The family of this 117-nucleotide RNA sequence from Pseudomonas savastanoi is "ALIL pseudoknot". The family's consensus secondary structure is taken from published work. Rfam classes the family as a cis-regulatory element. The organism belongs to Pseudomonas savastanoi pv. phaseolicola, within Bacteria.
RNA sequence: AGCCUAUUUUGCCCAGGCGGAGCUCGACCGCCCAUUCAAACGAUGAAGACGUUUAUUGAUGAAAACCGCCAGUCUUACGGGGUCGAGCCGAUUUGCAAGGUGUUGCCAAUCGCCCCG
Numbered sequence: 001a002g003c004c005u006a007u008u009u010u011g012c013c014c015a016g017g018c019g020g021a022g023c024u025c026g027a028c029c030g031c032c033c034a035u036u037c038a039a040a041c042g043a044u045g046a047a048g049a050c051g052u053u054u055a056u057u058g059a060u061g062a063a064a065a066c067c068g069c070c071a072g073u074c075u076u077a078c079g080g081g082g083u084c085g086a087g088c089c090g091a092u093u094u095g096c097a098a099g100g101u102g103u104u105g106c107c108a109a110u111c112g113c114c115c116c117g
Base pairs, nucleotide, nucleotide: 016032017031018030019029020028078117079116080115081114082113089112090111092109093108095106096105097104098103